[Rfam]
RNA: drum RNA
Organism: Anaeromusa burkinensis
RNA sequence: GACCGUUAAAACGGGUGAUUUGGUCAGAGAGGUUAUCCGAUCAGGUCCUUAUCGGUUUGGGCAUAAUGCCAAAAUCUGACUAGGUUGAGCCUUUGGCGAGACCGAACGAAAAAUGCUCUUU
Numbered sequence: 001g002a003c004c005g006u007u008a009a010a011a012c013g014g015g016u017g018a019u020u021u022g023g024u025c026a027g028a029g030a031g032g033u034u035a036u037c038c039g040a041u042c043a044g045g046u047c048c049u050u051a052u053c054g055g056u057u058u059g060g061g062c063a064u065a066a067u068g069c070c071a072a073a074a075u076c077u078g079a080c081u082a083g084g085u086u087g088a089g090c091c092u093u094u095g096g097c098g099a100g101a102c103c104g105a106a107c108g109a110a111a112a113a114u115g116c117u118c119u120u121u
Base pairs, nucleotide, nucleotide: 001047002046003045004044012039013038014037015036016035017034018033019032020031021030024079025078026077027076061116062115063114083103084102085101086100